[Rfam]
RNA sequence: UUGUGCCGGGAUCGCCACCCGCCAGCGCGUUGCGCCCGUGGGUGCGUUACCG
Number, nucleotide and partner (000 for none) at each position: 001u000002u000003g000004u000005g000006c000007c000008g000009g000010g000011a000012u000013c000014g000015c000016c044017a043018c042019c041020c040021g039022c038023c000024a000025g035026c034027g033028c032029g000030u000031u000032g028033c027034g026035c025036c000037c000038g022039u021040g020041g019042g018043u017044g016045c000046g000047u000048u000049a000050c000051c000052g000
RNA: ffh sRNA